[Rfam]
RNA: SAM riboswitch aptamer (S box leader)
RNA sequence: AAUUUAUAAAGAGUGGACGAAAGAACUGGCUUAAUGACUCCACGGCAACCUACAACAAGUAAGGUGCCCCUACCAGCAAAGCUAAUCGCUUUGAAUGAUGAAUG
Number, nucleotide and partner (000 for none) at each position: 001a000002a103003u102004u101005u100006a099007u098008a000009a000010a000011g000012a000013g043014u042015g041016g040017a039018c000019g000020a000021a032022a031023g030024a000025a000026c076027u075028g074029g073030c023031u022032u021033a000034a000035u000036g000037a000038c000039u017040c016041c015042a014043c013044g068045g067046c066047a065048a000049c064050c063051u061052a060053c059054a000055a000056c000057a000058a000059g053060u052061a051062a000063g050064g049065u047066g046067c045068c044069c000070c000071u000072a096073c029074c028075a027076g026077c093078a092079a091080a090081g089082c088083u000084a000085a000086u000087c000088g082089c081090u080091u079092u078093g077094a000095a000096u072097g000098a007099u006100g005101a004102a003103u002104g000